Background
A member of the RNA family "tRNA" from Acholeplasma laidlawii, 73 nucleotides long. The source organism's lineage runs through Bacteria, Bacillati, Mycoplasmatota, Acholeplasmataceae and Acholeplasma. By type it is a transfer RNA. The sequence is in the family's curated seed alignment.
RNA sequence: GGUCCGGUGGUGUAGGGGUUAACAUGCCUGCCUGUCACGCAGGAGAUCGCGGGUUCAAAUCCCGUCCGGACCG
Numbered sequence: 001g002g003u004c005c006g007g008u009g010g011u012g013u014a015g016g017g018g019u020u021a022a023c024a025u026g027c028c029u030g031c032c033u034g035u036c037a038c039g040c041a042g043g044a045g046a047u048c049g050c051g052g053g054u055u056c057a058a059a060u061c062c063c064g065u066c067c068g069g070a071c072c073g
Base pairs, nucleotide, nucleotide: 001072002071003070004069005068006067007066010025011024012023013022027043028042029041030040031039049065050064051063052062053061